[Rfam]
The record is a 547-nucleotide part of an RNA from a Candidatus Methanophagaceae archaeon, which matches "Archaeal large subunit ribosomal RNA" in Rfam. Rfam links the family to the GO terms ribosome and structural constituent of ribosome.
RNA sequence: UAUACGCCAUUUAGUGGAUGGCUCGGCUCAAGCGCCGAAGAGGGGCGUGCCAAGUUGCGAAAAGCCCCGGGUAGGUACAAGGAGCCUUAGAACCGGGGAUGCCCUAAUGGGAACUCCUGAUCCUCUGGAUCGGUCCUUCGGGAUCGGGAACGCUCCGAAUUGAAACAUCUUAGUAGGAGCAGGAAGAGAAAUCAAUAGAGAUGCCGUGAGUAACGGCGAGUGAAAGCGGCAGAGUUCAAACUGAAUCCUCACUCGAAAGAGUGAGGAGAUGUAGGGUUGUAAGUAAAGGUCGUAGAACCCACACUAUCGAAGCCGAAGUCCUCUGGAAUGAGGCGCCAUAGAGAGUGAUAGCCUCGUAGGCGUAAGAUAGCGGGUUCGACCUUUACUUGAGUACCGUAGGUUGGAUUUCCUGCGGGAAGCUGGGGGAUACCAACCUCCAAAACUAAACACGUCUUGAGACCGAUAGUGGAAUAGUACCGUGAGGGAAAGCUGAAAAGUACCCCGAAUAAGGAGGUGAAAAGAGCCUGAAACUAAAUGGCUACGGUGU
Numbered sequence: 001u002a003u004a005c006g007c008c009a010u011u012u013a014g015u016g017g018a019u020g021g022c023u024c025g026g027c028u029c030a031a032g033c034g035c036c037g038a039a040g041a042g043g044g045g046c047g048u049g050c051c052a053a054g055u056u057g058c059g060a061a062a063a064g065c066c067c068c069g070g071g072u073a074g075g076u077a078c079a080a081g082g083a084g085c086c087u088u089a090g091a092a093c094c095g096g097g098g099a100u101g102c103c104c105u106a107a108u109g110g111g112a113a114c115u116c117c118u119g120a121u122c123c124u125c126u127g128g129a130u131c132g133g134u135c136c137u138u139c140g141g142g143a144u145c146g147g148g149a150a151c152g153c154u155c156c157g158a159a160u161u162g163a164a165a166c167a168u169c170u171u172a173g174u175a176g177g178a179g180c181a182g183g184a185a186g187a188g189a190a191a192u193c194a195a196u197a198g199a200g201a202u203g204c205c206g207u208g209a210g211u212a213a214c215g216g217c218g219a220g221u222g223a224a225a226g227c228g229g230c231a232g233a234g235u236u237c238a239a240a241c242u243g244a245a246u247c248c249u250c251a252c253u254c255g256a257a258a259g260a261g262u263g264a265g266g267a268g269a270u271g272u273a274g275g276g277u278u279g280u281a282a283g284u285a286a287a288g289g290u291c292g293u294a295g296a297a298c299c300c301a302c303a304c305u306a307u308c309g310a311a312g313c314c315g316a317a318g319u320c321c322u323c324u325g326g327a328a329u330g331a332g333g334c335g336c337c338a339u340a341g342a343g344a345g346u347g348a349u350a351g352c353c354u355c356g357u358a359g360g361c362g363u364a365a366g367a368u369a370g371c372g373g374g375u376u377c378g379a380c381c382u383u384u385a386c387u388u389g390a391g392u393a394c395c396g397u398a399g400g401u402u403g404g405a406u407u408u409c410c411u412g413c414g415g416g417a418a419g420c421u422g423g424g425g426g427a428u429a430c431c432a433a434c435c436u437c438c439a440a441a442a443c444u445a446a447a448c449a450c451g452u453c454u455u456g457a458g459a460c461c462g463a464u465a466g467u468g469g470a471a472u473a474g475u476a477c478c479g480u481g482a483g484g485g486a487a488a489g490c491u492g493a494a495a496a497g498u499a500c501c502c503c504g505a506a507u508a509a510g511g512a513g514g515u516g517a518a519a520a521g522a523g524c525c526u527g528a529a530a531c532u533a534a535a536u537g538g539c540u541a542c543g544g545u546g547u
Base pairs, nucleotide, nucleotide: 006539007538008537009536010535011534012533013532014531020525021490022489025461026460027458028457029456030455031454032453033451034450042105043104044103045102046059047058048057065098066097067096068095069094070093074086075085076084109118110117111116133144134143135142136141151182152180153179154178155177156176162169163168192199193198203230204229205228206227207226213221214220233444234443235442236441241274242273243272251262252261253260254259286383287382288381289380296376297375298374299373312361313360314359318334320333321332322331323330337341343355344354345353394415395414396413397412398411399410400409422438423437424436425435426434477484478483